Shown here is a 112-nucleotide sequence from Photobacterium aphoticum, a member of the family "Gammaprotebacteria rimP leader". Taxonomically the source falls in Photobacterium (Bacteria, Gammaproteobacteria, Vibrionales, Vibrionaceae). The match comes from Rfam's covariance-model search (79 bits).
[Rfam]
RNA sequence: GUCACUGCUUUGGUAUUCAGGGUCCAGUGAUAUUAAACCCCGUAAUUCGGGGUUUUUUAUUAUCUGAAAUAUGACCAUUCAGAUAUCUCCUGGGCUUUAUAGCCCUUUUUUU
Number, nucleotide and partner (000 for none) at each position: 001g000002u000003c000004a000005c000006u000007g000008c000009u000010u000011u000012g000013g000014u000015a000016u000017u000018c000019a000020g000021g000022g000023u000024c000025c000026a000027g000028u000029g000030a000031u000032a000033u000034u000035a055036a054037a053038c052039c051040c050041c049042g048043u000044a000045a000046u000047u000048c042049g041050g040051g039052g038053u037054u036055u035056u000057u000058u000059a000060u000061u000062a000063u000064c000065u000066g000067a000068a000069a000070u000071a000072u000073g000074a000075c000076c000077a000078u000079u000080c000081a000082g000083a000084u000085a000086u000087c000088u000089c000090c000091u000092g105093g104094g103095c102096u000097u000098u000099a000100u000101a000102g095103c094104c093105c092106u000107u000108u000109u000110u000111u000112u000
The literature on the family includes a 2010 paper in Genome Biol by Naville and Gautheret, "Premature terminator analysis sheds light on a hidden world of bacterial transcriptional attenuation".